Rfam assigns this 272-nucleotide sequence from Nannospalax galili to the family "Mason-Pfizer monkey virus packaging signal". This family represents a group of sequences that are related to the Mason-Pfizer monkey virus (MPMV) packaging signal. The packaging signal is located in the 5' UTR and is required for specific RNA encapsidation. The family's consensus secondary structure was predicted with PFOLD. It is annotated as a cis-regulatory element.
[Rfam]
RNA sequence: UGGCGCCCAACGUGGGGCCUGGAUACUGGGUACAGUGUGAGAGACACGACGGAAGAAAAAGUGGUGUGCACCCACUCAAAUAAUUCAGAGACGCCGCGGGAGCCUGCUGCGACCGAGCCGAAGGUAAGUUGGUCGUUCAAUCAUGGGGCAAGAAUUAAGUCAGCAUCAGAUUUAUGUGAUACAGUUAAGAGAAGCUCUGCAGGCAAGAGGAGUAAAGGUUAAAACUGAGGAUUUAUUUCAUUUCUUUGAUUUUGUAAAGGAUAUUUGUCCCU
Numbered sequence: 001u002g003g004c005g006c007c008c009a010a011c012g013u014g015g016g017g018c019c020u021g022g023a024u025a026c027u028g029g030g031u032a033c034a035g036u037g038u039g040a041g042a043g044a045c046a047c048g049a050c051g052g053a054a055g056a057a058a059a060a061g062u063g064g065u066g067u068g069c070a071c072c073c074a075c076u077c078a079a080a081u082a083a084u085u086c087a088g089a090g091a092c093g094c095c096g097c098g099g100g101a102g103c104c105u106g107c108u109g110c111g112a113c114c115g116a117g118c119c120g121a122a123g124g125u126a127a128g129u130u131g132g133u134c135g136u137u138c139a140a141u142c143a144u145g146g147g148g149c150a151a152g153a154a155u156u157a158a159g160u161c162a163g164c165a166u167c168a169g170a171u172u173u174a175u176g177u178g179a180u181a182c183a184g185u186u187a188a189g190a191g192a193a194g195c196u197c198u199g200c201a202g203g204c205a206a207g208a209g210g211a212g213u214a215a216a217g218g219u220u221a222a223a224a225c226u227g228a229g230g231a232u233u234u235a236u237u238u239c240a241u242u243u244c245u246u247u248g249a250u251u252u253u254g255u256a257a258a259g260g261a262u263a264u265u266u267g268u269c270c271c272u
Base pairs, nucleotide, nucleotide: 006030007029008028012026013025014024035047036046037045038044082125084123085121086120092115093114095111096110097109098108099107134148136147137146138145139144156199157198159195160194207247208246209245210244211243212242216234217233218232219231220230257272259270260269261268262267